Source information: The family of this 173-nucleotide sequence from Geobacillus thermodenitrificans is "glmS glucosamine-6-phosphate activated ribozyme aptamer". Pairs were carried over by alignment from the consensus structure, which is taken from published work. About the family: This entry contains a glucosamine-6-phosphate activated ribozyme that is found in the mRNA for GlmS. GlmS is an enzyme that uses fructose-6-phosphate and glutamine to generate glucosamine-6-phosphate. The ribozyme catalyses self cleavage of the glmS mRNA that is thought to regulate GlmS activity. Taxonomically the source falls in Geobacillus thermodenitrificans (Bacteria, Bacillati, Bacillota, Anoxybacillaceae).

[Rfam]
RNA sequence: GACGACAAAAAAGCGCCUGGACUAAGCGCGGGAACGGACGCGCGCUUAGUUGACGAGGAGGAGGUUUAUCGAGGUUUUCGGCGGAUGCCUCCCGGCUGGAGCGAUGACAGCCGCAAGUCCUCUCUUAAAACAAAGGGGUGACCCUUUGGACAAAGGGGAGGAUGUCAUCGCAC
Number, nucleotide and partner (000 for none) at each position: 001g000002a000003c000004g000005a000006c000007a000008a000009a000010a000011a000012a000013g000014c000015g000016c000017c000018u000019g000020g051021a050022c049023u048024a047025a046026g045027c044028g000029c042030g000031g000032g000033a000034a000035c000036g000037g000038a000039c000040g000041c000042g029043c000044g027045c026046u025047u024048a023049g022050u021051u020052g000053a000054c000055g000056a000057g000058g000059a000060g092061g091062a090063g089064g088065u000066u000067u000068a000069u081070c080071g079072a078073g000074g000075u000076u000077u000078u072079c071080g070081g069082c000083g000084g000085a000086u000087g000088c064089c063090u062091c061092c060093c113094g112095g111096c110097u109098g108099g000100a000101g000102c000103g000104a000105u000106g000107a000108c098109a097110g096111c095112c094113g093114c000115a000116a000117g163118u162119c161120c160121u159122c158123u157124c000125u000126u000127a000128a000129a000130a000131c148132a147133a146134a145135g144136g143137g142138g000139u000140g000141a000142c137143c136144c135145u134146u133147u132148g131149g000150a000151c000152a000153a000154a000155g000156g000157g123158g122159a121160g120161g119162a118163u117164g000165u000166c000167a000168u000169c000170g000171c000172a000173c000